[Rfam]
RNA sequence: GAUCUGUGAUGAGAAAUAGCCAAAUCUGACCACCUGAAGAUAUGAUAAUCUUCCAGGUGUCAUGAUCUGUACGCAGUUCUGAGA
Numbered sequence: 001g002a003u004c005u006g007u008g009a010u011g012a013g014a015a016a017u018a019g020c021c022a023a024a025u026c027u028g029a030c031c032a033c034c035u036g037a038a039g040a041u042a043u044g045a046u047a048a049u050c051u052u053c054c055a056g057g058u059g060u061c062a063u064g065a066u067c068u069g070u071a072c073g074c075a076g077u078u079c080u081g082a083g084a
Base pairs, nucleotide, nucleotide: 031059032058033057034056038051039050040049041048
About this RNA: Shown here is an 84-nucleotide sequence from Podilymbus podiceps, a member of the family "Small nucleolar RNA U2-19". On this family, see Tycowski et al., Curr Biol 2004: "Guide RNAs with 5' Caps and Novel Box C/D snoRNA-like Domains for Modification of snRNAs in Metazoa". The base pairs follow the family's consensus structure, which is taken from published work. It scores 72 bits against the family's covariance model. The family's RNA type in Rfam is C/D-box small nucleolar RNA. The source organism's lineage runs through Eukaryota, Opisthokonta, Teleostomi, Podicipedidae and Podilymbus.